[Rfam]
RNA sequence: UGUAGAAGAUGCAGCUUGCAGAUUAUCAUCCACUCUCUCCGUUUCCCUUCCCACAGCUAUCAUCCGGACUAGCAUUUCCUGUACAUACUAGGGAAGGGAAAUGGAGAGAGUGUAUAAUGAAUUGCAUGCUUGAUUGCUGAG
Numbered sequence: 001u002g003u004a005g006a007a008g009a010u011g012c013a014g015c016u017u018g019c020a021g022a023u024u025a026u027c028a029u030c031c032a033c034u035c036u037c038u039c040c041g042u043u044u045c046c047c048u049u050c051c052c053a054c055a056g057c058u059a060u061c062a063u064c065c066g067g068a069c070u071a072g073c074a075u076u077u078c079c080u081g082u083a084c085a086u087a088c089u090a091g092g093g094a095a096g097g098g099a100a101a102u103g104g105a106g107a108g109a110g111u112g113u114a115u116a117a118u119g120a121a122u123u124g125c126a127u128g129c130u131u132g133a134u135u136g137c138u139g140a141g
Stems, first nucleotide, its partner, number of pairs: 013130003017126005023120004028115002031112011043100010
The record is a 141-nucleotide RNA from Physcomitrium patens, which matches "MIR1023 microRNA precursor family" in Rfam. The sequence is in the family's curated seed alignment. The literature on the family includes a 2007 paper in Plant Cell by Axtell et al., "Common functions for diverse small RNAs of land plants".